Background
The family of this 131-nucleotide RNA from Planococcus rifietoensis is "FMN riboswitch aptamer (RFN element)". The RFN element is a highly conserved domain that is found frequently in the 5'-untranslated regions of prokaryotic mRNAs that encode for flavin mononucleotide (FMN) biosynthesis and transport proteins. Its family is annotated with FMN binding in the Gene Ontology. The base pairs follow the family's consensus structure, which is taken from published work.

[Rfam]
RNA sequence: AGCGUUCUUCGGGGUCGGGUGAAAUUCCCAAUCGACGGUAACGGAGCAAUCCGAAGCCCGUGAGCCUUUCGGGGCAGGAUUUGGUGCAAGUCCAAAGCCGACAGUUAAAGUCUGGAUGGGAGAAGAACCGU
Numbered sequence: 001a002g003c004g005u006u007c008u009u010c011g012g013g014g015u016c017g018g019g020u021g022a023a024a025u026u027c028c029c030a031a032u033c034g035a036c037g038g039u040a041a042c043g044g045a046g047c048a049a050u051c052c053g054a055a056g057c058c059c060g061u062g063a064g065c066c067u068u069u070c071g072g073g074g075c076a077g078g079a080u081u082u083g084g085u086g087c088a089a090g091u092c093c094a095a096a097g098c099c100g101a102c103a104g105u106u107a108a109a110g111u112c113u114g115g116a117u118g119g120g121a122g123a124a125g126a127a128c129c130g131u
Base pairs, nucleotide, nucleotide: 004128005127006126007125008124009123010122017029018028019027031111032110033100034099035061036060037059038058056098057097066074080096081095082094083093084092102114103113104112